[Rfam]
Background: The family of this 107-nucleotide RNA sequence from Halobacillus yeomjeoni is "SAM riboswitch aptamer (S box leader)". Rfam links the family to the GO term regulation of gene expression. The base pairs follow the family's consensus structure, which is taken from published work. The family is grouped with related families in Rfam's "SAM clan".
Nucleotides: 107
Base pairs, nucleotide, nucleotide: 003105004104005103006102007101008100013041015040016039017038021031022030023029025078027076028075042070043069044068045067047066048065050062051061052060074099079096080095081094082093083092084091
Number, partner (000 for none) and nucleotide at each position: 001000c002000a003105c004104u005103u006102a007101u008100c009000c010000a011000g012000a013041g014000a015040g016039g017038c018000a019000g020000a021031g022030g023029g024000a025078c026000u027076g028075g029023c030022c031021c032000u033000a034000c035000g036000a037000a038017g039016c040015c041013c042070a043069g044068c045067a046000a047066c048065c049000g050062g051061u052060c053000a054000u055000a056000g057000g058000a059000c060052g061051g062050c063000a064000c065048g066047g067045u068044g069043c070042u071000a072000a073000a074099u075028c076027c077000u078025g079096c080095a081094a082093g083092g084091c085000a086000u087000u088000u089000u090000u091084g092083c093082u094081u095080u096079g097000a098000a099074a100008g101007a102006u103005g104004a105003g106000g107000a